Record summary:
The record is a 113-nucleotide RNA sequence from Paraliobacillus quinghaiensis, which matches "epsC RNA" in Rfam. Pairs were carried over by alignment from the consensus structure, which is taken from published work. The family has 30 seed sequences and 450 matches in Rfam 15.1. The match comes from Rfam's covariance-model search (96 bits).
RNA sequence: UGGUAAUGUCUCCUUUACCACUAUCAACCGGAGGCACUCGGCUAUGCUGUGGGUCAAGCGACCUUAGACACUUGUUGUCAGUAGUGUGGUGGUGAGGUGGGGUUAAAUGCCCC
Numbered sequence: 001u002g003g004u005a006a007u008g009u010c011u012c013c014u015u016u017a018c019c020a021c022u023a024u025c026a027a028c029c030g031g032a033g034g035c036a037c038u039c040g041g042c043u044a045u046g047c048u049g050u051g052g053g054u055c056a057a058g059c060g061a062c063c064u065u066a067g068a069c070a071c072u073u074g075u076u077g078u079c080a081g082u083a084g085u086g087u088g089g090u091g092g093u094g095a096g097g098u099g100g101g102g103u104u105a106a107a108u109g110c111c112c113c
Base pairs, nucleotide, nucleotide: 001020002019003018004017007036008035009034010033011032012031013030037096038095039094040093041090042089043088044087045086046085047084048083051064052063053062054061055060067079068078069077070076099113100112101111102110103109
It is annotated as a cis-regulatory element.